[Rfam]
RNA sequence: GGAAGUAGCAAAUAUUCAAGUGAGAGCCUUGAAGACUGAAGUGGAGAAGGGUUCCGUGCGGACUGCGAUUGGACACGGGUGAGUCGGUCCUAAGAGAUGGGGAAACUCUGUUUCAAGUGCGCGGUGCGCGCAGGCCAUCGAAAGGGGAUUGGGUUAAGAGUCCCAAACCGGGACGUGGAGAGUUUAGGCGGCGACGCAAGCGAGUCGGAAGACGCCGGGUGGAGCCCUGGGCAGAGUUAUCUUUUCUGUUUGACACGCGCAGCGCCCUGGAAUCGGCUUAUCCGGAGAUCGGGCGCGCGCCGUGGCACAGCGCCGCGCGUCGUGCGGCGUCCGGUGCGCUCCACACGGCCCUUGAAAAUUCCGGCGAGCCGAGUGCUUUCACGCCCGGCCGUACCCAUCACCGCAUCAGGUCUCCAAGGUGAGCAGCCUCUAGUCGA
Numbered sequence: 001g002g003a004a005g006u007a008g009c010a011a012a013u014a015u016u017c018a019a020g021u022g023a024g025a026g027c028c029u030u031g032a033a034g035a036c037u038g039a040a041g042u043g044g045a046g047a048a049g050g051g052u053u054c055c056g057u058g059c060g061g062a063c064u065g066c067g068a069u070u071g072g073a074c075a076c077g078g079g080u081g082a083g084u085c086g087g088u089c090c091u092a093a094g095a096g097a098u099g100g101g102g103a104a105a106c107u108c109u110g111u112u113u114c115a116a117g118u119g120c121g122c123g124g125u126g127c128g129c130g131c132a133g134g135c136c137a138u139c140g141a142a143a144g145g146g147g148a149u150u151g152g153g154u155u156a157a158g159a160g161u162c163c164c165a166a167a168c169c170g171g172g173a174c175g176u177g178g179a180g181a182g183u184u185u186a187g188g189c190g191g192c193g194a195c196g197c198a199a200g201c202g203a204g205u206c207g208g209a210a211g212a213c214g215c216c217g218g219g220u221g222g223a224g225c226c227c228u229g230g231g232c233a234g235a236g237u238u239a240u241c242u243u244u245u246c247u248g249u250u251u252g253a254c255a256c257g258c259g260c261a262g263c264g265c266c267c268u269g270g271a272a273u274c275g276g277c278u279u280a281u282c283c284g285g286a287g288a289u290c291g292g293g294c295g296c297g298c299g300c301c302g303u304g305g306c307a308c309a310g311c312g313c314c315g316c317g318c319g320u321c322g323u324g325c326g327g328c329g330u331c332c333g334g335u336g337c338g339c340u341c342c343a344c345a346c347g348g349c350c351c352u353u354g355a356a357a358a359u360u361c362c363g364g365c366g367a368g369c370c371g372a373g374u375g376c377u378u379u380c381a382c383g384c385c386c387g388g389c390c391g392u393a394c395c396c397a398u399c400a401c402c403g404c405a406u407c408a409g410g411u412c413u414c415c416a417a418g419g420u421g422a423g424c425a426g427c428c429u430c431u432a433g434u435c436g437a
Stems, first nucleotide, its partner, number of pairs: 015033006034435004043415004049395002054078005063071001085391003089145002094139002096112003100109003119131003149166005169387004174383005179377002188197003205364006214349004219344007227334003230250006254304004264294004269289001273285004311329007401410002417429004